Shown here is a 107-nucleotide sequence from Halpernia frigidisoli, a member of the family "Flavo-1 RNA". Rfam classes the family as a small RNA. Pairs were carried over by alignment from the consensus structure, which is taken from published work. NCBI's taxonomy places the organism under Bacteria, Bacteroidota, Flavobacteriales, Weeksellaceae, Halpernia.
RNA sequence: CUUUCGCAAAAGGGAUAGAAGCGGCAUCCUUUUUUUGUUGCGGGAAAUGUUCUAAUUUAAAAACUAAGCUUCGGCAAAAAAAGAUAUAGCGGACAGCCCGACCCGAG
Numbered sequence: 001c002u003u004u005c006g007c008a009a010a011a012g013g014g015a016u017a018g019a020a021g022c023g024g025c026a027u028c029c030u031u032u033u034u035u036u037g038u039u040g041c042g043g044g045a046a047a048u049g050u051u052c053u054a055a056u057u058u059a060a061a062a063a064c065u066a067a068g069c070u071u072c073g074g075c076a077a078a079a080a081a082a083g084a085u086a087u088a089g090c091g092g093a094c095a096g097c098c099c100g101a102c103c104c105g106a107g
Stems, first nucleotide, its partner, number of pairs: 012099003016095001021090002026085003032080008
A search with the family's covariance model found it, with a score of 54 bits.